[Rfam]
RNA sequence: CUAUUUAUCACCAGAUUCUAGAAUCCUAUCGAUAUUGUCUCUGCUGCGUAACUAGCUCUGAGCAGUGCAACAUUGCUCGUAGGGUUUUGGUGUUGGGGAAGG
Numbered sequence: 001c002u003a004u005u006u007a008u009c010a011c012c013a014g015a016u017u018c019u020a021g022a023a024u025c026c027u028a029u030c031g032a033u034a035u036u037g038u039c040u041c042u043g044c045u046g047c048g049u050a051a052c053u054a055g056c057u058c059u060g061a062g063c064a065g066u067g068c069a070a071c072a073u074u075g076c077u078c079g080u081a082g083g084g085u086u087u088u089g090g091u092g093u094u095g096g097g098g099a100a101g102g
Stems, first nucleotide, its partner, number of pairs: 020088010030075004035070004041065005
RNA: mir-454 microRNA precursor family